[Rfam]
RNA sequence: GUUGCCAAUGAUGAGUUGCGAAAUUGCCUACAUUGUUUGACAAACAUCCCUGUGAUAAUAAUUGCAACUGCUGAGGCAUAC
Numbered sequence: 001g002u003u004g005c006c007a008a009u010g011a012u013g014a015g016u017u018g019c020g021a022a023a024u025u026g027c028c029u030a031c032a033u034u035g036u037u038u039g040a041c042a043a044a045c046a047u048c049c050c051u052g053u054g055a056u057a058a059u060a061a062u063u064g065c066a067a068c069u070g071c072u073g074a075g076g077c078a079u080a081c
Stems, first nucleotide, its partner, number of pairs: 001081002003078004
Dot-bracket structure: ((((((....................................................................)))).))
RNA: Small nucleolar RNA SNORD34